[Rfam]
This 135-nucleotide RNA from Phascolarctos cinereus belongs to the Rfam family "Small nucleolar RNA SNORA43". Rfam's curators write: ACA43 is a member of the H/ACA class of snoRNA that guide the sites of modification of uridines to pseudouridines. The family has 21 seed sequences and 492 matches in Rfam 15.1.

RNA sequence: UCUGCCCCCUAGAGGCAUUACAGAUAUGACUGCUGUGUCAUGUUUGUAAUUAGGUGGCAAAGAGAGAAAGGCUAUGUCUACGCUCGGUGUUCUUAAAUUUGUGAGCACUUAGAAUGAUUUGAUAGCCUUACAGUA
Numbered sequence: 001u002c003u004g005c006c007c008c009c010u011a012g013a014g015g016c017a018u019u020a021c022a023g024a025u026a027u028g029a030c031u032g033c034u035g036u037g038u039c040a041u042g043u044u045u046g047u048a049a050u051u052a053g054g055u056g057g058c059a060a061a062g063a064g065a066g067a068a069a070g071g072c073u074a075u076g077u078c079u080a081c082g083c084u085c086g087g088u089g090u091u092c093u094u095a096a097a098u099u100u101g102u103g104a105g106c107a108c109u110u111a112g113a114a115u116g117a118u119u120u121g122a123u124a125g126c127c128u129u130a131c132a133g134u135a
Base pairs, nucleotide, nucleotide: 003059004058005057006056008054009053010052020047021046022045023044070127071126072125079116080115083112084111088107089106090105091104092103